This 68-nucleotide RNA sequence from Marinobacter sp. C1S70 belongs to the Rfam family "L31-Gammaproteobacteria ribosomal protein leader". On this family, see Eckert and Weinberg, BMC Microbiol 2020: "Discovery of 20 novel ribosomal leader candidates in bacteria and archaea". By type it is a cis-regulatory leader. Clan: Ribosomal Protein L31 Leader clan. The organism belongs to Marinobacter, within Bacteria.
RNA sequence: CAUGCGGUGCCUGGCACCUGGGCAGCCAAAAUGCCCCGUGAUCAGGUAGCGGCAUGACCUAAAGAGGU
Dot-bracket structure: (((((.((..(((((((....................))).))))...)).)))))............